[Rfam]
RNA sequence: AUCACUAGUUAGAGGCUAAAGCAGAAGCACUCACAGCAUGCCUUAUCAGAUUCCAAUGAAUCUGCAGAUUCUGCU
Numbered sequence: 001a002u003c004a005c006u007a008g009u010u011a012g013a014g015g016c017u018a019a020a021g022c023a024g025a026a027g028c029a030c031u032c033a034c035a036g037c038a039u040g041c042c043u044u045a046u047c048a049g050a051u052u053c054c055a056a057u058g059a060a061u062c063u064g065c066a067g068a069u070u071c072u073g074c075u
Stems, first nucleotide, its partner, number of pairs: 013043004017038001020075007027037002047064007
A member of the RNA family "Mammalian CPEB3 ribozyme" from Crocodylus porosus, 75 nucleotides long. The base pairs follow the family's consensus structure, which is taken from published work. Taxonomically the source falls in Crocodylus (Eukaryota, Metazoa, Bilateria, Chordata).